[Rfam]
RNA sequence: UAGGGAAGUCAGGGCCAGGAGCUCCCCCCUGAGCCCAGGGUAACCCUAACUGUGGGGGAGCA
Numbered sequence: 001u002a003g004g005g006a007a008g009u010c011a012g013g014g015c016c017a018g019g020a021g022c023u024c025c026c027c028c029c030u031g032a033g034c035c036c037a038g039g040g041u042a043a044c045c046c047u048a049a050c051u052g053u054g055g056g057g058g059a060g061c062a
Base pairs, nucleotide, nucleotide: 008041009040010039012036013035014034015033016031017030018029019028022060023059024058025057026056027055